c-di-GMP-I riboswitch aptamer: an 88-nucleotide RNA from Selenihalanaerobacter shriftii.

RNA sequence: AAUUUUAGAGGGCAAACCUGUUGAAAAGCAGGGACGCAAAGUUAUGGGGCUAAAUCCUUUAAAGGAUUUAGCUUGCCAGACUGCAUUU
Numbered sequence: 001a002a003u004u005u006u007a008g009a010g011g012g013c014a015a016a017c018c019u020g021u022u023g024a025a026a027a028g029c030a031g032g033g034a035c036g037c038a039a040a041g042u043u044a045u046g047g048g049g050c051u052a053a054a055u056c057c058u059u060u061a062a063a064g065g066a067u068u069u070a071g072c073u074u075g076c077c078a079g080a081c082u083g084c085a086u087u088u
Base pairs, nucleotide, nucleotide: 012037013036017032018031019030020029021028022027040082041081042080043079045078046077047076048073049072050071055066056065057064058063